[Rfam]
small Cajal body-specific RNA 17: a 145-nucleotide sequence from Oryctolagus cuniculus. Rfam links the family to the GO terms Cajal body, RNA processing and nucleolus. A reference for the family is Tycowski et al. (2004), "Guide RNAs with 5' Caps and Novel Box C/D snoRNA-like Domains for Modification of snRNAs in Metazoa", Curr Biol.

RNA sequence: CGCCCGGACCCCAAGUGCAGUCCCCGCAUGAGCCCGCAGUAUUUUCCUUAUAUGAUCGGGCCCCGUUACGGGCGAGGCCGCUUGUUUCAGGGCCUGAGAGGAUUAUGAAAACGAGGCAGGCGAAGUGGGGCUCGGGGCCCGGGCG
Numbered sequence: 001c002g003c004c005c006g007g008a009c010c011c012c013a014a015g016u017g018c019a020g021u022c023c024c025c026g027c028a029u030g031a032g033c034c035c036g037c038a039g040u041a042u043u044u045u046c047c048u049u050a051u052a053u054g055a056u057c058g059g060g061c062c063c064c065g066u067u068a069c070g071g072g073c074g075a076g077g078c079c080g081c082u083u084g085u086u087u088c089a090g091g092g093c094c095u096g097a098g099a100g101g102a103u104u105a106u107g108a109a110a111a112c113g114a115g116g117c118a119g120g121c122g123a124a125g126u127g128g129g130g131c132u133c134g135g136g137g138c139c140c141g142g143g144c145g
Base pairs, nucleotide, nucleotide: 001145002144003143004142005141006140007139009137010136011135012134020131021130022129023128024127056097057096058095059094060093061092063090068085069084070083071082072081073080074079
Rfam classes the family as a small Cajal body RNA.